[Rfam]
RNA: mir-317 microRNA precursor family
RNA sequence: CCACACCGGGACGGGGAGCCACCCUGCGUUCUCCUGUUGUUGGAAUUUCCAGGUGAACACAGCUGGUGGUAUCUCAGUCCUUGUGAUUUU
Numbered sequence: 001c002c003a004c005a006c007c008g009g010g011a012c013g014g015g016g017a018g019c020c021a022c023c024c025u026g027c028g029u030u031c032u033c034c035u036g037u038u039g040u041u042g043g044a045a046u047u048u049c050c051a052g053g054u055g056a057a058c059a060c061a062g063c064u065g066g067u068g069g070u071a072u073c074u075c076a077g078u079c080c081u082u083g084u085g086a087u088u089u090u
Base pairs, nucleotide, nucleotide: 008081009080010079011078012077015075016073017072018070019069021067022066023065024062025061026060028058030056031055